The family of this 223-nucleotide sequence from Yersinia pseudotuberculosis is "GlmZ RNA activator of glmS mRNA". Taxonomically the source falls in Yersinia pseudotuberculosis (Bacteria, Pseudomonadati, Gammaproteobacteria, Yersinia). The base pairs follow the family's consensus structure, which is taken from published work. Rfam describes the family as follows. This RNA was discovered in E. coli during a large scale screen. The sraJ gene was expressed in early logarithmic phase, but its level decreased with cell growth. Specific cleavage products of this RNA were found. Identified in Yersinia pseudotuberculosis as Ysr248/153/sR016. It is one of the family's seed sequences.
[Rfam]
RNA sequence: GUAGAUGCUCAUCCCACUUAUUAUGACAGCUUGGCCAUUAAGGCUAAUUUAGCUUCAUAAACCCAGGGAUGACGCAGAGCCGAUUUUAGAGUGCCUAUUGUCCAUGUAACCGAUGUUGAGUAAUGUCAUCACAUACCGGGCAUAACGUUGAGUGAGGCACUGAUAUUGUUGUCUAUCGACCUGAAAAUUUUAGACACUUGCCCUUUUCGGCAAGUGUUUUUUU
Dot-bracket structure: ((...(((((((.((.(.((......(.(....................).).....))......))))))).)))..)).........(((((((...((((........((((...........)))).......)))).............))))))).........(((....)))............((((((((((......)))))))))).....
Notes: The literature on the family includes a 2001 paper in Curr Biol by Argaman et al., "Novel small RNA-encoding genes in the intergenic regions of Escherichia coli". The family's RNA type in Rfam is small RNA.